Notes: Shown here is a 132-nucleotide sequence from Nannospalax galili, a member of the family "Small nucleolar RNA SNORA61". Rfam 15.1 lists 881 matches to the family in 421 species. Rfam links the family to the GO terms nucleolus and RNA processing. It is annotated as an H/ACA-box small nucleolar RNA. About the family: ACA61 is a member of the H/ACA class of snoRNA that guide the sites of modification of uridines to pseudouridines. NCBI's taxonomy places the organism under Eukaryota, Bilateria, Craniata, Gnathostomata, Nannospalax.
RNA sequence: ACCCUCCGGUUUCCUUUCCCAUCAGAUCACAACACUGGUCUUGGUGGUCAUAAAGGAGGGAGAGCAUGCUGAAGCUGGCCUCACAGCCUUGUUGUGGUCUGCUAUAAGCACGUGGGCUAGAUUCAAACAGGG
Numbered sequence: 001a002c003c004c005u006c007c008g009g010u011u012u013c014c015u016u017u018c019c020c021a022u023c024a025g026a027u028c029a030c031a032a033c034a035c036u037g038g039u040c041u042u043g044g045u046g047g048u049c050a051u052a053a054a055g056g057a058g059g060g061a062g063a064g065c066a067u068g069c070u071g072a073a074g075c076u077g078g079c080c081u082c083a084c085a086g087c088c089u090u091g092u093u094g095u096g097g098u099c100u101g102c103u104a105u106a107a108g109c110a111c112g113u114g115g116g117c118u119a120g121a122u123u124c125a126a127a128c129a130g131g132g
Stems, first nucleotide, its partner, number of pairs: 003059005019047005025040004075120007093110003
Dot-bracket structure: ..(((((...........(((((.((((........))))..))))).......)))))...............(((((((...........(((............)))...)))))))............